Notes
Bacterial RNase P class A: a 441-nucleotide sequence from Qipengyuania atrilutea. A search with the family's covariance model found it, with a score of 249 bits. NCBI's taxonomy places the organism under Bacteria, Pseudomonadati, Pseudomonadota, Sphingomonadales, Qipengyuania. The family's RNA type in Rfam is ribozyme. From the family's description: Ribonuclease P (RNase P) is a ubiquitous endoribonuclease, found in archaea, bacteria and eukarya as well as chloroplasts and mitochondria.
[Rfam]
RNA sequence: CCAGGAGGCCGGGCAGCCGCGUUGGAGCAUCCGCUUCACCGAGGAAAGUCCGGGCUCCACGAAACGAAGGUGGCGGGUAACGCCCGCCCGUUCGCGGCCUUCGGGCGGCGGACGAGGGAUAGUGCCACAGAAAGCAAACCGCCGAAACGGCCCUCGGGCCGAAUGGCAAGGGUGAAAGGGUGCGGUAAGAGCGCACCGGGGCGACCGGCAACGGGGCCCGCAUGGUAAACCCCACCUGGAGCAAGGCCGAAUAGGGACGGCGCGCCGGUUUGUCCGGCCGAGGCGUUUCGCCUCGAGGUUCGCGCCUGCGACCGUCCGGGUUGGCUGCUUGAGCGCGGGGAGCAAUCCCCCGCCUAGACGAAUGGCUGCCCUCGCGGCGGCUGGUGCGCUUUGCGCAUACCGGCCGCGAGACAGAACCCGGCUUACAGGCCUCCUGGCACC
Numbered sequence: 001c002c003a004g005g006a007g008g009c010c011g012g013g014c015a016g017c018c019g020c021g022u023u024g025g026a027g028c029a030u031c032c033g034c035u036u037c038a039c040c041g042a043g044g045a046a047a048g049u050c051c052g053g054g055c056u057c058c059a060c061g062a063a064a065c066g067a068a069g070g071u072g073g074c075g076g077g078u079a080a081c082g083c084c085c086g087c088c089c090g091u092u093c094g095c096g097g098c099c100u101u102c103g104g105g106c107g108g109c110g111g112a113c114g115a116g117g118g119a120u121a122g123u124g125c126c127a128c129a130g131a132a133a134g135c136a137a138a139c140c141g142c143c144g145a146a147a148c149g150g151c152c153c154u155c156g157g158g159c160c161g162a163a164u165g166g167c168a169a170g171g172g173u174g175a176a177a178g179g180g181u182g183c184g185g186u187a188a189g190a191g192c193g194c195a196c197c198g199g200g201g202c203g204a205c206c207g208g209c210a211a212c213g214g215g216g217c218c219c220g221c222a223u224g225g226u227a228a229a230c231c232c233c234a235c236c237u238g239g240a241g242c243a244a245g246g247c248c249g250a251a252u253a254g255g256g257a258c259g260g261c262g263c264g265c266c267g268g269u270u271u272g273u274c275c276g277g278c279c280g281a282g283g284c285g286u287u288u289c290g291c292c293u294c295g296a297g298g299u300u301c302g303c304g305c306c307u308g309c310g311a312c313c314g315u316c317c318g319g320g321u322u323g324g325c326u327g328c329u330u331g332a333g334c335g336c337g338g339g340g341a342g343c344a345a346u347c348c349c350c351c352g353c354c355u356a357g358a359c360g361a362a363u364g365g366c367u368g369c370c371c372u373c374g375c376g377g378c379g380g381c382u383g384g385u386g387c388g389c390u391u392u393g394c395g396c397a398u399a400c401c402g403g404c405c406g407c408g409a410g411a412c413a414g415a416a417c418c419c420g421g422c423u424u425a426c427a428g429g430c431c432u433c434c435u436g437g438c439a440c441c
Stems, first nucleotide, its partner, number of pairs: 001437010011426001012370007020041002023038006046424003050421005055241004066300001068237005073087005088116001089114007117232002122230002124226003139171002141167003148161005179197006198221001199219004205214003245326004255317006333353003337350005